[Rfam]
RNA sequence: AAUUCGGUUCGUAAGAACAAAGAGAGCAGAUCUAUUCUCUACCCGAUAAGUACCAUCUACGCCAUGGGA
Numbered sequence: 001a002a003u004u005c006g007g008u009u010c011g012u013a014a015g016a017a018c019a020a021a022g023a024g025a026g027c028a029g030a031u032c033u034a035u036u037c038u039c040u041a042c043c044c045g046a047u048a049a050g051u052a053c054c055a056u057c058u059a060c061g062c063c064a065u066g067g068g069a
Stems, first nucleotide, its partner, number of pairs: 003022002007018004042068003050060003
A member of the RNA family "Plastid-clpP 5UTR RNA" from Musa balbisiana, 69 nucleotides long. The family's RNA type in Rfam is cis-regulatory element. A reference for the family is Richter et al. (2023), "Retrograde signaling in plants: A critical review focusing on the GUN pathway and beyond", Plant Commun. The family's consensus secondary structure was predicted with LocARNA. NCBI's taxonomy places the organism under Eukaryota, Viridiplantae, Petrosaviidae, Musaceae, Musa. From the family's description: Plastid clpP is a non-coding RNA (ncRNA) recognised in plastids. It was found in the prime untranslated region (5UTR) of a protease complex subunit (clpP) in plastids, suggesting a posible cis-regulatory function.